[Rfam]
RNA sequence: GUCAACCACCCCUCCCUGAAGGGAGGGGCUUGUAGGGAGACCUAUAAGCCCGGGGUUGACCAGGGAAAGCGGUAAUCAGCCCGCUACGUUGGCGACAGGUCAGAAGACCCACUCCGAGAUGCUUCCUGAGUCUCGGACCCUGGAAGGAACCGUUGCAGACAAGGCACGGGUAGCCACGAAACGGACGGUUCCCGCCGGUCGAUCCGGCAAGCCGGUUGCCGACAUUCCCGAAGGGAGACGCCC
Numbered sequence: 001g002u003c004a005a006c007c008a009c010c011c012c013u014c015c016c017u018g019a020a021g022g023g024a025g026g027g028g029c030u031u032g033u034a035g036g037g038a039g040a041c042c043u044a045u046a047a048g049c050c051c052g053g054g055g056u057u058g059a060c061c062a063g064g065g066a067a068a069g070c071g072g073u074a075a076u077c078a079g080c081c082c083g084c085u086a087c088g089u090u091g092g093c094g095a096c097a098g099g100u101c102a103g104a105a106g107a108c109c110c111a112c113u114c115c116g117a118g119a120u121g122c123u124u125c126c127u128g129a130g131u132c133u134c135g136g137a138c139c140c141u142g143g144a145a146g147g148a149a150c151c152g153u154u155g156c157a158g159a160c161a162a163g164g165c166a167c168g169g170g171u172a173g174c175c176a177c178g179a180a181a182c183g184g185a186c187g188g189u190u191c192c193c194g195c196c197g198g199u200c201g202a203u204c205c206g207g208c209a210a211g212c213c214g215g216u217u218g219c220c221g222a223c224a225u226u227c228c229c230g231a232a233g234g235g236a237g238a239c240g241c242c243c
Base pairs, nucleotide, nucleotide: 001060002059003058004057005056006055007054010028011027012025013024015022016021029048030047031046032045033044034043035042036041063229064228065227066226067225068085069084070083071082072081088223089222090221091220092219093218094217095216096215098213109143110142113137114136115135116134117133118132119131120130121239123237124236125235126234127233146192147191148190149189150188151187152186153185154184
The family of this 243-nucleotide RNA sequence from Acidihalobacter prosperus is "HNH endonuclease-associated RNA and ORF (HEARO) RNA".
The literature on the family includes a 2009 paper in Nature by Weinberg et al., "Exceptional structured noncoding RNAs revealed by bacterial metagenome analysis".
A search with the family's covariance model found it, with a score of 105 bits.